[Rfam]
Nucleotides: 153
Stems, first nucleotide, its partner, number of pairs: 004074006011020001013018001022049003031042003086144005098131002101128002103125005
Number, partner (000 for none) and nucleotide at each position: 001000u002000a003000u004074c005073g006072a007071a008070g009069g010000u011020c012000c013018c014000a015000g016000c017000a018013g019000a020011g021000a022049g023048g024047g025000u026000u027000a028000a029000u030000a031042c032041u033040c034000a035000a036000c037000a038000a039000c040033g041032a042031g043000g044000c045000u046000u047024c048023u049022c050000u051000a052000a053000c054000a055000g056000u057000g058000a059000a060000u061000u062000a063000a064000a065000c066000u067000u068000u069009c070008c071007u072006u073005c074004g075000u076000a077000a078000a079000u080000u081000g082000a083000u084000a085000u086144g087143c088142c089141g090140a091000a092000u093000c094000g095000u096000a097000g098131g099130a100000u101128g102127c103125c104124c105123c106122a107121a108000u109000u110000g111000c112000u113000u114000c115000u116000u117000g118000g119000u120000u121107u122106u123105g124104g125103g126000u127102g128101c129000g130099u131098c132000u133000g134000g135000a136000a137000c138000c139000c140090u141089c142088g143087g144086c145000u146000a147000c148000a149000u150000u151000u152000g153000a

The record is a 153-nucleotide sequence from Actinidia chinensis, which matches "Small nucleolar RNA snoR145" in Rfam. Rfam links the family to the GO terms RNA processing and nucleolus. The literature on the family includes a 2009 paper in Nucleic Acids Res by Chen and Wu, "Mining small RNA sequencing data: a new approach to identify small nucleolar RNAs in Arabidopsis". Pairs were carried over by alignment from the consensus structure, which was predicted with mfold. The source organism's lineage runs through Eukaryota, Embryophyta, Gunneridae, Actinidia and Actinidia chinensis.